[Rfam]
RNA sequence: GGGCCUGUAGCUCAAUUGGUUAGAGCCGGCGGCUCAUAACCGCUUGGUUGGGGGUUCGAGUCCCUCCGGGCCCA
Number, nucleotide and partner (000 for none) at each position: 001g073002g072003g071004c070005c069006u068007g067008u000009a000010g026011c025012u024013c023014a000015a000016u000017u000018g000019g000020u000021u000022a000023g013024a012025g011026c010027c000028g044029g043030c042031g041032g040033c000034u000035c000036a000037u000038a000039a000040c032041c031042g030043c029044u028045u000046g000047g000048u000049u000050g066051g065052g064053g063054g062055u000056u000057c000058g000059a000060g000061u000062c054063c053064c052065u051066c050067c007068g006069g005070g004071c003072c002073c001074a000
RNA: tRNA
Organism: Maricaulis maris